Overview
This 126-nucleotide sequence from Schistosoma japonicum belongs to the Rfam family "mir-219 microRNA precursor family". Its family is annotated with RISC complex and miRNA-mediated post-transcriptional gene silencing in the Gene Ontology.
RNA sequence: AAUCGAUUCACUGAUUGUCCAUUCGCAUUUCUUGUUAGAAACAUUUUCAAUUAUUAUCAUUAUUCAAUGAUAAUGAUGAUAAUAUUUAAUUCACAAGAGGUGUUAAUGGACAUCAUAUGAUCGAUU
Numbered sequence: 001a002a003u004c005g006a007u008u009c010a011c012u013g014a015u016u017g018u019c020c021a022u023u024c025g026c027a028u029u030u031c032u033u034g035u036u037a038g039a040a041a042c043a044u045u046u047u048c049a050a051u052u053a054u055u056a057u058c059a060u061u062a063u064u065c066a067a068u069g070a071u072a073a074u075g076a077u078g079a080u081a082a083u084a085u086u087u088a089a090u091u092c093a094c095a096a097g098a099g100g101u102g103u104u105a106a107u108g109g110a111c112a113u114c115a116u117a118u119g120a121u122c123g124a125u126u
Stems, first nucleotide, its partner, number of pairs: 002125006012115004017111005025103010
Pairs were carried over by alignment from the consensus structure, which was predicted with RNAalifold. Lineage of the source: Eukaryota > Protostomia > Trematoda > Schistosomatoidea > Schistosoma. Rfam 15.1 lists 1,318 matches to the family in 774 species.